[Rfam]
The family of this 107-nucleotide RNA from Geotrypetes seraphini is "mraW RNA".
The match comes from Rfam's covariance-model search (52 bits).
Rfam classes the family as a cis-regulatory element.
Lineage of the source: Eukaryota > Opisthokonta > Deuterostomia > Gymnophiona > Geotrypetes.
RNA sequence: GUUGUUCUUCCUUGCUUCGGGCCUUCCUGGUGGCCGGGUCCUGCCUACUUUCCGCGAAGUCAGGACCCGGCAACUAGGAAGGCCCGAAGCAAGCAAGUUGUAAGCUU
Numbered sequence: 001g002u003u004g005u006u007c008u009u010c011c012u013u014g015c016u017u018c019g020g021g022c023c024u025u026c027c028u029g030g031u032g033g034c035c036g037g038g039u040c041c042u043g044c045c046u047a048c049u050u051u052c053c054g055c056g057a058a059g060u061c062a063g064g065a066c067c068c069g070g071c072a073a074c075u076a077g078g079a080a081g082g083c084c085c086g087a088a089g090c091a092a093g094c095a096a097g098u099u100g101u102a103a104g105c106u107u
Stems, first nucleotide, its partner, number of pairs: 011093006018086002021083011033071011045059002